Small nucleolar RNA SNORA33: a 124-nucleotide RNA from Jaculus jaculus. The family's RNA type in Rfam is H/ACA-box small nucleolar RNA. Pairs were carried over by alignment from the consensus structure, which was predicted with PFOLD. NCBI's taxonomy places the organism under Eukaryota, Opisthokonta, Dipnotetrapodomorpha, Mammalia, Jaculus. The family has 28 seed sequences and 1,176 matches in Rfam 15.1. ACA33 is a member of the H/ACA class of snoRNA that guide the sites of modification of uridines to pseudouridines.

[Rfam]
RNA sequence: AAGCCAGCAACUAAUCUACUUCUCUGAAUGUGUUUCUGCAGAAAUAUAGAAAAUGCUGGCAAUAGCAAUGCCAUUUUAUGAGCUUUAAGGAUAGCUAUUCAGGUCCCUGAAAAUAGCUACAAUA
Numbered sequence: 001a002a003g004c005c006a007g008c009a010a011c012u013a014a015u016c017u018a019c020u021u022c023u024c025u026g027a028a029u030g031u032g033u034u035u036c037u038g039c040a041g042a043a044a045u046a047u048a049g050a051a052a053a054u055g056c057u058g059g060c061a062a063u064a065g066c067a068a069u070g071c072c073a074u075u076u077u078a079u080g081a082g083c084u085u086u087a088a089g090g091a092u093a094g095c096u097a098u099u100c101a102g103g104u105c106c107c108u109g110a111a112a113a114u115a116g117c118u119a120c121a122a123u124a
Stems, first nucleotide, its partner, number of pairs: 003060005015042003019038001070117002073114001082104004087099002090096001